Mammalian CPEB3 ribozyme: a 73-nucleotide RNA from Laticauda laticaudata.
The mammalian CPEB3 ribozyme is a self cleaving RNA located in the second intron of the CPEB3 gene which belongs to a family of genes regulating messenger RNA polyadenylation.
Lineage of the source: Eukaryota > Opisthokonta > Teleostomi > Episquamata > Laticauda.
[Rfam]
RNA sequence: AGUGGAUGGGGCCAUAGAAGGAACGUUCACGUCGCGGUCCCUGUCAGGUAUCUGUUUACCUGCGAAUCCUUCU
Numbered sequence: 001a002g003u004g005g006a007u008g009g010g011g012c013c014a015u016a017g018a019a020g021g022a023a024c025g026u027u028c029a030c031g032u033c034g035c036g037g038u039c040c041c042u043g044u045c046a047g048g049u050a051u052c053u054g055u056u057u058a059c060c061u062g063c064g065a066a067u068c069c070u071u072c073u
Stems, first nucleotide, its partner, number of pairs: 008041006016073007024034002045062006